This 85-nucleotide RNA sequence from Bombyx mori belongs to the Rfam family "mir-2807 microRNA precursor family". Taxonomically the source falls in Bombyx (Eukaryota, Arthropoda, Altocrustacea, Dicondylia). Gene Ontology terms of the family: miRNA-mediated post-transcriptional gene silencing and RISC complex. It scores 65 bits against the family's covariance model.
RNA sequence: UGAACUCAAAUUUGUAUGGAGUUGGAACAGCUUCCCUACGUUUGCCGCUAGGGGCGCUGUGUUAUCUCCAUACAAAAUUGAGUUA
Numbered sequence: 001u002g003a004a005c006u007c008a009a010a011u012u013u014g015u016a017u018g019g020a021g022u023u024g025g026a027a028c029a030g031c032u033u034c035c036c037u038a039c040g041u042u043u044g045c046c047g048c049u050a051g052g053g054g055c056g057c058u059g060u061g062u063u064a065u066c067u068c069c070a071u072a073c074a075a076a077a078u079u080g081a082g083u084u085a
Stems, first nucleotide, its partner, number of pairs: 008079002011076006018069001020067002023064003027060003035053003040048002
Pairs were carried over by alignment from the consensus structure, which was predicted with RNAalifold.